[Rfam]
RNA: Small nucleolar RNA sR45
Organism: Thermococcus barophilus
RNA sequence: GUGGAUGAUGAUGCCGAGGACACCCGAGCAGAGGCAAUGAGGACUCUUCGCUUCGCUGACU
Dot-bracket structure: .....((..((.((.(((((((...............)).....))))))).))..))...